[Rfam]
RNA: Bacterial small subunit ribosomal RNA, nucleotides 1 to 487
RNA sequence: GUAAGUAUAAAUUUAAACUUAGUUUCGAGUGAAUGCUAUCUAGGGACUUGACACAUGCGAGUCGAAUGCCAAAUAUUAUAUAUUUGGACCAUGGCGAACGGGUGAGUAAUGAAUAGGCAAACUACCCAUAGGAUUGGUGGAAUACCAAAUAUUGAAAGGAUAAUUUCCGCCUAUGGAUGUACCUAUUGAAUAGAUUAGGUAGUUGGUAAGGUAACGGCUUACCAAGCCAAUGAUCUAUAGUUAGUCUGAGAGGAUGAUUAACCACAGUGGGAAUGAGAAAGGCCCACACUGAAUUUUUCAGGCAGCAGUGCGGAAUAUUGGUCAAUGGCCGAAAGGCUGAACCAGUCACCUAGAAGGACGAAUACAUUUAUUUGAUAAAGUCCUAACGGAAAGGAGGAUAAUGACUGUACUUUCCUAUUAAUCCCGACCAAUCUCGUGCCAGCAGUCGCGGUAAUACGAGAGGGGUAAGCAUUAUUCAUCAUGAAUG
Numbered sequence: 001g002u003a004a005g006u007a008u009a010a011a012u013u014u015a016a017a018c019u020u021a022g023u024u025u026c027g028a029g030u031g032a033a034u035g036c037u038a039u040c041u042a043g044g045g046a047c048u049u050g051a052c053a054c055a056u057g058c059g060a061g062u063c064g065a066a067u068g069c070c071a072a073a074u075a076u077u078a079u080a081u082a083u084u085u086g087g088a089c090c091a092u093g094g095c096g097a098a099c100g101g102g103u104g105a106g107u108a109a110u111g112a113a114u115a116g117g118c119a120a121a122c123u124a125c126c127c128a129u130a131g132g133a134u135u136g137g138u139g140g141a142a143u144a145c146c147a148a149a150u151a152u153u154g155a156a157a158g159g160a161u162a163a164u165u166u167c168c169g170c171c172u173a174u175g176g177a178u179g180u181a182c183c184u185a186u187u188g189a190a191u192a193g194a195u196u197a198g199g200u201a202g203u204u205g206g207u208a209a210g211g212u213a214a215c216g217g218c219u220u221a222c223c224a225a226g227c228c229a230a231u232g233a234u235c236u237a238u239a240g241u242u243a244g245u246c247u248g249a250g251a252g253g254a255u256g257a258u259u260a261a262c263c264a265c266a267g268u269g270g271g272a273a274u275g276a277g278a279a280a281g282g283c284c285c286a287c288a289c290u291g292a293a294u295u296u297u298u299c300a301g302g303c304a305g306c307a308g309u310g311c312g313g314a315a316u317a318u319u320g321g322u323c324a325a326u327g328g329c330c331g332a333a334a335g336g337c338u339g340a341a342c343c344a345g346u347c348a349c350c351u352a353g354a355a356g357g358a359c360g361a362a363u364a365c366a367u368u369u370a371u372u373u374g375a376u377a378a379a380g381u382c383c384u385a386a387c388g389g390a391a392a393g394g395a396g397g398a399u400a401a402u403g404a405c406u407g408u409a410c411u412u413u414c415c416u417a418u419u420a421a422u423c424c425c426g427a428c429c430a431a432u433c434u435c436g437u438g439c440c441a442g443c444a445g446u447c448g449c450g451g452u453a454a455u456a457c458g459a460g461a462g463g464g465g466u467a468a469g470c471a472u473u474a475u476u477c478a479u480c481a482u483g484a485a486u487g
Base pairs, nucleotide, nucleotide: 009025010024011023012022013021027477028476029475030474032473033472034471035470036469037468039354040353041352042351043350044349045347046346047312052310053309054308056307057306058305061095062094063093066092067091068090069087070086071085072084073083074082075081102265103264104263112187113186114185115184116183117182121180122179126176127175128174129173130172131171132170134148135147136146137145158168159167160166191237192236193235198228199227200226203225204224205223206222207221208220209219210218240262241261242260243259244255245254246253247252267287268286269285270284271283289301290300291299292298318344320343321342322341326339327338328337329336330335356383357382358381359380366371388415389414390413391412392411393410397405421466422465423464424463425462432461433460434459435458436457442449443448